[Rfam]
RNA sequence: GUCUACUUUUUAGCGAGUUCGGGAUAGUGUGAGCCGGAUAGGGAAGCAGUGCAGAUGGCGCUUUCGGUUAUAAUUUCAAAAGUAAUGAAGUAAUAAAUUAGGGUGGAACCGCGUUUUGACG
Numbered sequence: 001g002u003c004u005a006c007u008u009u010u011u012a013g014c015g016a017g018u019u020c021g022g023g024a025u026a027g028u029g030u031g032a033g034c035c036g037g038a039u040a041g042g043g044a045a046g047c048a049g050u051g052c053a054g055a056u057g058g059c060g061c062u063u064u065c066g067g068u069u070a071u072a073a074u075u076u077c078a079a080a081a082g083u084a085a086u087g088a089a090g091u092a093a094u095a096a097a098u099u100a101g102g103g104u105g106g107a108a109c110c111g112c113g114u115u116u117u118g119a120c121g
Stems, first nucleotide, its partner, number of pairs: 001112002004108001006106002009103002017071002023065002026062004032056001034054001039049001074090005